[Rfam]
RNA sequence: AAAACGCUGCGAGUUUCGGUUUGGAUAUUUAGUUGCCGAAACAUCGCAUGAUUAUAUACCGUUUCUCGUUUCACUGCGAAACGGCGAAUUGAACAGCUUCCAAAAUUGAUAUUUUGUUCAGCUGUUCAAUUUUAAG
Number, nucleotide and partner (000 for none) at each position: 001a000002a000003a000004a000005c000006g000007c000008u000009g000010c000011g045012a044013g042014u041015u040016u039017c038018g037019g036020u035021u000022u000023g000024g000025a000026u000027a000028u000029u000030u000031a000032g000033u000034u000035g020036c019037c018038g017039a016040a015041a014042c013043a000044u012045c011046g000047c000048a000049u000050g000051a000052u000053u000054a000055u000056a000057u000058a000059c084060c083061g082062u081063u080064u079065c078066u000067c000068g000069u000070u000071u000072c000073a000074c000075u000076g000077c000078g065079a064080a063081a062082c061083g060084g059085c000086g000087a000088a130089u129090u128091g127092a126093a125094c124095a123096g122097c121098u120099u000100c000101c116102a115103a114104a113105a112106u111107u000108g000109a000110u000111a106112u105113u104114u103115u102116g101117u000118u000119c000120a098121g097122c096123u095124g094125u093126u092127c091128a090129a089130u088131u000132u000133u000134a000135a000136g000
This 136-nucleotide RNA from Treponema maltophilum belongs to the Rfam family "TD-1 RNA". Pairs were carried over by alignment from the consensus structure, which is taken from published work. It scores 81 bits against the family's covariance model. The organism belongs to Treponema maltophilum, within Bacteria. Its Rfam clan is "TD (Treponema denticola) motifs". A reference for the family is Weinberg et al. (2007), "Identification of 22 candidate structured RNAs in bacteria using the CMfinder comparative genomics pipeline", Nucleic Acids Res.